[Rfam]
RNA sequence: GAGCAAUGAUGGUGAUGUCUCGUUCGUCUGAAUUAUGAACCCCACCAGGUUCGCUCCUUGACGACUAUUCUUAUAUCACCACCCAUAAACUGAGCUC
Number, nucleotide and partner (000 for none) at each position: 001g097002a096003g095004c094005a000006a000007u000008g000009a000010u000011g000012g000013u000014g000015a000016u000017g000018u000019c000020u000021c000022g000023u000024u000025c000026g000027u000028c000029u000030g000031a000032a000033u000034u000035a000036u000037g059038a058039a000040c000041c000042c000043c000044a000045c000046c000047a000048g000049g000050u000051u000052c000053g000054c000055u000056c000057c000058u038059u037060g000061a000062c000063g000064a000065c000066u000067a000068u000069u000070c000071u000072u000073a000074u000075a000076u000077c000078a000079c000080c000081a000082c000083c000084c000085a000086u000087a000088a000089a000090c000091u000092g000093a000094g004095c003096u002097c001
Small nucleolar RNA Z43: a 97-nucleotide RNA sequence from Nannochloris sp. 'desiccata'. Taxonomically the source falls in Nannochloris (Eukaryota, core chlorophytes, Trebouxiophyceae, Chlorellaceae). Rfam 15.1 lists 859 matches to the family in 240 species. A reference for the family is Chen et al. (2003), "The high diversity of snoRNAs in plants: identification and comparative study of 120 snoRNA genes from Oryza sativa", Nucleic Acids Res.